Rfam assigns this 86-nucleotide RNA sequence from Gymnodraco acuticeps to the family "mir-184 microRNA precursor family". Taxonomically the source falls in Gymnodraco (Eukaryota, Gnathostomata, Euteleostomi, Actinopteri). Its family is annotated with gene silencing by miRNA and RISC complex in the Gene Ontology.

[Rfam]
RNA sequence: UCACUCACAUCUCCUUAUCACGUUUUCCAGCCCAGCUAUAGAUAUUGUAUCCGUUGGACGGAGAACUGAUAAGGGCAUGUGCAUGA
Numbered sequence: 001u002c003a004c005u006c007a008c009a010u011c012u013c014c015u016u017a018u019c020a021c022g023u024u025u026u027c028c029a030g031c032c033c034a035g036c037u038a039u040a041g042a043u044a045u046u047g048u049a050u051c052c053g054u055u056g057g058a059c060g061g062a063g064a065a066c067u068g069a070u071a072a073g074g075g076c077a078u079g080u081g082c083a084u085g086a
Stems, first nucleotide, its partner, number of pairs: 012075009023065006031057002